[Rfam]
RNA: S10-Clostridia ribosomal protein leader
Nucleotides: 086
Stems, first nucleotide, its partner, number of pairs: 014052003018049004025040002028037002062084003068080002
Number, partner (000 for none) and nucleotide at each position: 001000u002000g003000a004000g005000a006000a007000c008000u009000a010000u011000g012000a013000u014052u015051c016050a017000g018049g019048a020047g021046g022000u023000u024000g025040u026039u027000a028037u029036u030000u031000c032000g033000a034000u035000u036029g037028a038000g039026a040025a041000g042000u043000a044000a045000a046021u047020u048019u049018c050016u051015g052014a053000g054000g055000a056000g057000c058000g059000a060000a061000a062084g063083u064082c065000g066000g067000u068080u069079c070000a071000a072000g073000a074000a075000a076000c077000c078000c079069g080068a081000u082064g083063g084062c085000a086000a